This 92-nucleotide RNA sequence from Pseudogymnoascus sp. 05NY08 belongs to the Rfam family "tRNA".
RNA sequence: GCCCCCAUAGCUCAGUUGGUAGAGCGCGGCACUAGUAUCUGAUCACGUGAUCUGAAAUGCCGAGGUCUACGGUUCAACUCCGUAUGUGGGCA
Numbered sequence: 001g002c003c004c005c006c007a008u009a010g011c012u013c014a015g016u017u018g019g020u021a022g023a024g025c026g027c028g029g030c031a032c033u034a035g036u037a038u039c040u041g042a043u044c045a046c047g048u049g050a051u052c053u054g055a056a057a058u059g060c061c062g063a064g065g066u067c068u069a070c071g072g073u074u075c076a077a078c079u080c081c082g083u084a085u086g087u088g089g090g091c092a
Stems, first nucleotide, its partner, number of pairs: 001091004006086002010025004027062005068084005
Its Rfam clan is "tRNA clan". Rfam classes the family as a transfer RNA. It scores 53 bits against the family's covariance model. Taxonomically the source falls in Pseudogymnoascus (Eukaryota, leotiomyceta, Thelebolales, Thelebolaceae).